Shown here is a 104-nucleotide RNA from Prunus yedoensis, a member of the family "MIR6274 microRNA precursor family".
RNA sequence: GGAUAGCAUUGUUUUGCUAUCCCGGCCAAUAACACAAUGGCACGUGGAAAAGUUAUCCUAUGUGUCACUGCGUUAUUGGCCGAGGAUAGCAAAAAGUGGUAUCC
Numbered sequence: 001g002g003a004u005a006g007c008a009u010u011g012u013u014u015u016g017c018u019a020u021c022c023c024g025g026c027c028a029a030u031a032a033c034a035c036a037a038u039g040g041c042a043c044g045u046g047g048a049a050a051a052g053u054u055a056u057c058c059u060a061u062g063u064g065u066c067a068c069u070g071c072g073u074u075a076u077u078g079g080c081c082g083a084g085g086a087u088a089g090c091a092a093a094a095a096g097u098g099g100u101a102u103c104c
Base pairs, nucleotide, nucleotide: 002103003102004101005100012094013093014092015091016090017089018088019087020086021084023082024081025080026079027078028077029076030075031074032073033072035070036069038067039066040065041064042063043062044061045060046059047058049056
It scores 86 bits against the family's covariance model.